[Rfam]
RNA sequence: UGCGCCCCAAUUCCGCCUAACUACCGCUCACGUCCUGUGAGCAACGGCGGAAUAUCACCAUCCUGGUUC
Dot-bracket structure: ..........(((((((.........(((((.....)))))....)))))))....(((.....)))..